Shown here is an 84-nucleotide sequence from Ornithorhynchus anatinus, a member of the family "mir-1422 microRNA precursor family".
The sequence is in the family's curated seed alignment.
Pairs were carried over by alignment from the consensus structure, which was predicted with RNAalifold.
Gene Ontology terms of the family: RISC complex and miRNA-mediated post-transcriptional gene silencing.

RNA sequence: CUGAUUCUGGUUUCCUUCAAGGCAAAGGUUUUCUUGAGAUAAUGAUGAUCUAGACAACCCUGUCUUGAUUGAUACCAGGGUCAG
Numbered sequence: 001c002u003g004a005u006u007c008u009g010g011u012u013u014c015c016u017u018c019a020a021g022g023c024a025a026a027g028g029u030u031u032u033c034u035u036g037a038g039a040u041a042a043u044g045a046u047g048a049u050c051u052a053g054a055c056a057a058c059c060c061u062g063u064c065u066u067g068a069u070u071g072a073u074a075c076c077a078g079g080g081u082c083a084g
Stems, first nucleotide, its partner, number of pairs: 003082004008077004013072002017068006029057002032054003